[Rfam]
RNA sequence: CCUGGAGGAUCAAGAAGGCAGUGUCUGAUGAAGCAAGACUCUGCUGAUACACUCCUCCUAGAGAAACAGGGUUGGGGAGAGCAGCCCUUGUUAAAGAGCACUGCGGGGCUGACUGUGCUACCCUACAUGC
Numbered sequence: 001c002c003u004g005g006a007g008g009a010u011c012a013a014g015a016a017g018g019c020a021g022u023g024u025c026u027g028a029u030g031a032a033g034c035a036a037g038a039c040u041c042u043g044c045u046g047a048u049a050c051a052c053u054c055c056u057c058c059u060a061g062a063g064a065a066a067c068a069g070g071g072u073u074g075g076g077g078a079g080a081g082c083a084g085c086c087c088u089u090g091u092u093a094a095a096g097a098g099c100a101c102u103g104c105g106g107g108g109c110u111g112a113c114u115g116u117g118c119u120a121c122c123c124u125a126c127a128u129g130c
Base pairs, nucleotide, nucleotide: 002061003060004058005057006056007055008054009053017045018044019043021041023039024038025037026036069123070122071121072120080114081113082111083110084109085108086107087106088105092103093102
RNA: Small Cajal body specific RNA 4